[Rfam]
RNA sequence: GCGUUCCUCACUGGAGAGAGGCCGGUCCUUGAGCCGGCCCACCGAAGGGGCAAGCCCGAGGCGAUUCGCCUGGGGUCAAUCUCUCAGGUACCCCGGACGGCGAGGACAUC
Numbered sequence: 001g002c003g004u005u006c007c008u009c010a011c012u013g014g015a016g017a018g019a020g021g022c023c024g025g026u027c028c029u030u031g032a033g034c035c036g037g038c039c040c041a042c043c044g045a046a047g048g049g050g051c052a053a054g055c056c057c058g059a060g061g062c063g064a065u066u067c068g069c070c071u072g073g074g075g076u077c078a079a080u081c082u083c084u085c086a087g088g089u090a091c092c093c094c095g096g097a098c099g100g101c102g103a104g105g106a107c108a109u110c
Stems, first nucleotide, its partner, number of pairs: 006105004011100003020039007041089003044085002048083003054076004
Glycine riboswitch aptamer: a 110-nucleotide RNA from Pelomonas sp. Root1444. The match comes from Rfam's covariance-model search (53 bits). NCBI's taxonomy places the organism under Bacteria, Pseudomonadota, Burkholderiales, Sphaerotilaceae, Roseateles.